[Rfam]
RNA sequence: GCGCAGGCCGUUCAGCGAGGCUGGGCCUGUUCUGUGGUCCUGACCUUUCCUGUAGUGUCUGCAAGAAAGACCGGGGCGGUUUGAGGCCUGGCUGUGACUCUCCACAGCGAGGUUAAAGAAACCUCGUACAAUA
Numbered sequence: 001g002c003g004c005a006g007g008c009c010g011u012u013c014a015g016c017g018a019g020g021c022u023g024g025g026c027c028u029g030u031u032c033u034g035u036g037g038u039c040c041u042g043a044c045c046u047u048u049c050c051u052g053u054a055g056u057g058u059c060u061g062c063a064a065g066a067a068a069g070a071c072c073g074g075g076g077c078g079g080u081u082u083g084a085g086g087c088c089u090g091g092c093u094g095u096g097a098c099u100c101u102c103c104a105c106a107g108c109g110a111g112g113u114u115a116a117a118g119a120a121a122c123c124u125c126g127u128a129c130a131a132u133a
Stems, first nucleotide, its partner, number of pairs: 003062006018046003023040005072126005087112003091108002094105003
The family of this 133-nucleotide RNA from Conger conger is "Small nucleolar RNA SNORA9". Its Rfam clan is "SNORA9 clan". ACA9 is a member of the H/ACA class of snoRNA that guide the sites of modification of uridines to pseudouridines. Lineage of the source: Eukaryota > Actinopteri > Elopomorpha > Congrinae > Conger.